[Rfam]
RNA sequence: AUAUUCCUUCGGGGCAAGGUGAAAGUCCUUACCGGCGGUGAUGAAGCUGAGGCUUCUUAGUCCGUGACCCGGUUAACAAUUUGUUAAACGGUGGAUCUGGUGAAACUCCAGGGCCGACAGUUACAGUCUGGAUGGGAGAAGGAAAAG
Numbered sequence: 001a002u003a004u005u006c007c008u009u010c011g012g013g014g015c016a017a018g019g020u021g022a023a024a025g026u027c028c029u030u031a032c033c034g035g036c037g038g039u040g041a042u043g044a045a046g047c048u049g050a051g052g053c054u055u056c057u058u059a060g061u062c063c064g065u066g067a068c069c070c071g072g073u074u075a076a077c078a079a080u081u082u083g084u085u086a087a088a089c090g091g092u093g094g095a096u097c098u099g100g101u102g103a104a105a106c107u108c109c110a111g112g113g114c115c116g117a118c119a120g121u122u123a124c125a126g127u128c129u130g131g132a133u134g135g136g137a138g139a140a141g142g143a144a145a146a147g
Stems, first nucleotide, its partner, number of pairs: 004144007017029003031127002033116002035065004060114002069091002096112005118130003
The record is a 147-nucleotide sequence from Neobacillus mesonae, which matches "FMN riboswitch aptamer (RFN element)" in Rfam. A search with the family's covariance model found it, with a score of 114 bits. The source organism's lineage runs through Bacteria, Bacillati, Bacillota, Bacilli and Neobacillus.